[Rfam]
Group II catalytic intron D1-D4-3: a 168-nucleotide RNA from Desulfoscipio geothermicus.
The organism belongs to Desulfoscipio geothermicus, within Bacteria.
The match comes from Rfam's covariance-model search (71 bits).
Group II introns are found in rRNA, tRNA and mRNA of organelles in fungi, plants and protists, and also in mRNA in bacteria.
RNA sequence: UCACUGGCAACGGUGGGGUCUGAAGGAAGCUGAAGGGGGAACUUGGAACAUAGCGCAAGCGAACCGGCGUUGGCCUAUCAGGUGGGUAACCUUGCACAAAGUGGGAAAGCCCGAAAGCUGGAUAACCUGGGAGGUUAGGACGGAUGCGUUCAAGUUCAGGUAAGCAGA
Numbered sequence: 001u002c003a004c005u006g007g008c009a010a011c012g013g014u015g016g017g018g019u020c021u022g023a024a025g026g027a028a029g030c031u032g033a034a035g036g037g038g039g040a041a042c043u044u045g046g047a048a049c050a051u052a053g054c055g056c057a058a059g060c061g062a063a064c065c066g067g068c069g070u071u072g073g074c075c076u077a078u079c080a081g082g083u084g085g086g087u088a089a090c091c092u093u094g095c096a097c098a099a100a101g102u103g104g105g106a107a108a109g110c111c112c113g114a115a116a117g118c119u120g121g122a123u124a125a126c127c128u129g130g131g132a133g134g135u136u137a138g139g140a141c142g143g144a145u146g147c148g149u150u151c152a153a154g155u156u157c158a159g160g161u162a163a164g165c166a167g168a
Stems, first nucleotide, its partner, number of pairs: 001016006030167003036161001041155006049146003064143003068139001073135003078130006084112004090105003